[Rfam]
RNA: serC leader
RNA sequence: AAGUGGGUUACGUCCCCCCACCGGGACGCACCUAUCUGGAAGGAUAGGAGGA
Numbered sequence: 001a002a003g004u005g006g007g008u009u010a011c012g013u014c015c016c017c018c019c020a021c022c023g024g025g026a027c028g029c030a031c032c033u034a035u036c037u038g039g040a041a042g043g044a045u046a047g048g049a050g051g052a
Stems, first nucleotide, its partner, number of pairs: 011028006032047006